This 183-nucleotide RNA from Brachypodium distachyon belongs to the Rfam family "Small nucleolar RNA Z112". Clan: SNORD49 clan. The family's RNA type in Rfam is C/D-box small nucleolar RNA. The family's consensus secondary structure was predicted with PFOLD. On this family, see Liang et al., Nucleic Acids Res 2002: "A novel gene organization: intronic snoRNA gene clusters from Oryza sativa". A search with the family's covariance model found it, with a score of 179 bits. The family has 6 seed sequences and 427 matches in Rfam 15.1.

RNA sequence: AUUCCAGUGAGGAGCUCGGACCAUAGGAAGUGCCGUUUGACACUGUAAACAGCAGCUGCUUCUCUCCACUGCAAGUGUCCUUCCUUCGACAAUAACCUCUGUGGUUUGGUCUGGGCCGGAAUCUUCAUUUGCACCUGGUUUGAUUCAGCUGUGUGCGUGAUUUUAAGCGGGUCUCUGAGGGAU
Number, nucleotide and partner (000 for none) at each position: 001a183002u182003u181004c180005c179006a000007g000008u000009g000010a000011g000012g000013a000014g000015c000016u000017c000018g000019g000020a000021c000022c000023a000024u000025a000026g000027g000028a000029a000030g000031u000032g000033c000034c000035g000036u000037u000038u000039g000040a000041c000042a000043c000044u000045g000046u000047a000048a000049a000050c000051a000052g000053c000054a000055g000056c000057u000058g000059c000060u000061u000062c000063u000064c000065u000066c000067c000068a000069c000070u133071g132072c131073a130074a129075g128076u127077g126078u120079c119080c118081u000082u000083c115084c114085u000086u000087c000088g111089a110090c109091a000092a107093u000094a106095a105096c104097c103098u000099c000100u000101g000102u000103g097104g096105u095106u094107u092108g000109g090110u089111c088112u000113g000114g084115g083116c000117c000118g080119g079120a078121a000122u000123c000124u000125u000126c077127a076128u075129u074130u073131g072132c071133a070134c000135c000136u000137g000138g000139u000140u000141u000142g000143a000144u000145u000146c000147a000148g000149c000150u000151g000152u000153g000154u000155g000156c000157g000158u000159g000160a000161u000162u000163u000164u000165a000166a000167g000168c000169g000170g000171g000172u000173c000174u000175c000176u000177g000178a000179g005180g004181g003182a002183u001